[Rfam]
RNA sequence: GCGUUGGUUUAGCUCAGUGGUUACUUCCGAUUGACUCGAAGAUCACCAUCUCAUGGCUGUCGGGAAACCGGCGACCGGAGAUCGAACCACGGGCGCUGUCCAGCGUUUUU
Numbered sequence: 001g002c003g004u005u006g007g008u009u010u011a012g013c014u015c016a017g018u019g020g021u022u023a024c025u026u027c028c029g030a031u032u033g034a035c036u037c038g039a040a041g042a043u044c045a046c047c048a049u050c051u052c053a054u055g056g057c058u059g060u061c062g063g064g065a066a067a068c069c070g071g072c073g074a075c076c077g078g079a080g081a082u083c084g085a086a087c088c089a090c091g092g093g094c095g096c097u098g099u100c101c102a103g104c105g106u107u108u109u110u
Stems, first nucleotide, its partner, number of pairs: 002105006012094004017090004025080005